[Rfam]
RNA sequence: ACAACGGCUCUUUUAAGAGCCACACACUUUACUAAACGAGCUGUG
Numbered sequence: 001a002c003a004a005c006g007g008c009u010c011u012u013u014u015a016a017g018a019g020c021c022a023c024a025c026a027c028u029u030u031a032c033u034a035a036a037c038g039a040g041c042u043g044u045g
Base pairs, nucleotide, nucleotide: 006021007020008019009018010017011016
A member of the RNA family "Histone 3' UTR stem-loop" from Neogobius melanostomus, 45 nucleotides long. The match comes from Rfam's covariance-model search (39 bits). The family's RNA type in Rfam is cis-regulatory element. Gene Ontology term of the family: mRNA 3'-end processing by stem-loop binding and cleavage. The base pairs follow the family's consensus structure, which is taken from published work.